[Rfam]
RNA: Guanidine-I riboswitch aptamer
Organism: Paenibacillus cremeus
RNA sequence: UAAUUCGUUUACUAGGGUUCCGCCGGUGCUGCCGGGCCUGGUCCGAGAGUAAACCGUUCUCUGAUAUAAUACCUGACAUUGAGGUAGGGCAGAGUUCGACACGGAAGGAUAAAAACCUGGGAGAU
Numbered sequence: 001u002a003a004u005u006c007g008u009u010u011a012c013u014a015g016g017g018u019u020c021c022g023c024c025g026g027u028g029c030u031g032c033c034g035g036g037c038c039u040g041g042u043c044c045g046a047g048a049g050u051a052a053a054c055c056g057u058u059c060u061c062u063g064a065u066a067u068a069a070u071a072c073c074u075g076a077c078a079u080u081g082a083g084g085u086a087g088g089g090c091a092g093a094g095u096u097c098g099a100c101a102c103g104g105a106a107g108g109a110u111a112a113a114a115a116c117c118u119g120g121g122a123g124a125u
Stems, first nucleotide, its partner, number of pairs: 007054006015044002020041002022038001023035005055098002059094004100120001102123001106118003